[Rfam]
RNA sequence: ACGUAAAUAGGCAAAUAUAUCGAAAGGUAUGGACGCAAAGCCACGAGCCUAAAGUCUUAAGGAACACGGUCGUCGGGCUGCAACUU
Numbered sequence: 001a002c003g004u005a006a007a008u009a010g011g012c013a014a015a016u017a018u019a020u021c022g023a024a025a026g027g028u029a030u031g032g033a034c035g036c037a038a039a040g041c042c043a044c045g046a047g048c049c050u051a052a053a054g055u056c057u058u059a060a061g062g063a064a065c066a067c068g069g070u071c072g073u074c075g076g077g078c079u080g081c082a083a084c085u086u
Stems, first nucleotide, its partner, number of pairs: 001086001004082001011036002016031006034072001039079004044075003047070003
Rfam assigns this 86-nucleotide RNA from Pontibacillus chungwhensis to the family "c-di-GMP-I-GGC riboswitch aptamer". The family's consensus secondary structure is taken from published work. The organism belongs to Pontibacillus chungwhensis, within Bacteria. A search with the family's covariance model found it, with a score of 60 bits.